[Rfam]
RNA sequence: GGCGGCCAAGGAGAUGACGUUCCUCCUCAACCGCUGCGGCAUGCAGCUGAUGACGUCUACAGAACC
Numbered sequence: 001g002g003c004g005g006c007c008a009a010g011g012a013g014a015u016g017a018c019g020u021u022c023c024u025c026c027u028c029a030a031c032c033g034c035u036g037c038g039g040c041a042u043g044c045a046g047c048u049g050a051u052g053a054c055g056u057c058u059a060c061a062g063a064a065c066c
Stems, first nucleotide, its partner, number of pairs: 010026004016057006033047004
RNA: Fluoride riboswitch aptamer (crcB RNA motif)
Organism: Comamonas terrigena